The record is a 108-nucleotide sequence from Tenacibaculum holothuriorum, which matches "6S-Flavo RNA" in Rfam.
It scores 106 bits against the family's covariance model.
RNA sequence: ACUCAACGCUAUACAAUUAAAAAGGAUGAGUCUUGGUUAGUAAAGCAUGCCGAUUUUAUUCGGAUCCUUGAUCAGCCAGUUAGUCCUAAACCUGUUUUUCAGGAGUUU
Numbered sequence: 001a002c003u004c005a006a007c008g009c010u011a012u013a014c015a016a017u018u019a020a021a022a023a024g025g026a027u028g029a030g031u032c033u034u035g036g037u038u039a040g041u042a043a044a045g046c047a048u049g050c051c052g053a054u055u056u057u058a059u060u061c062g063g064a065u066c067c068u069u070g071a072u073c074a075g076c077c078a079g080u081u082a083g084u085c086c087u088a089a090a091c092c093u094g095u096u097u098u099u100c101a102g103g104a105g106u107u108u
Stems, first nucleotide, its partner, number of pairs: 023087005034078005043069003050063004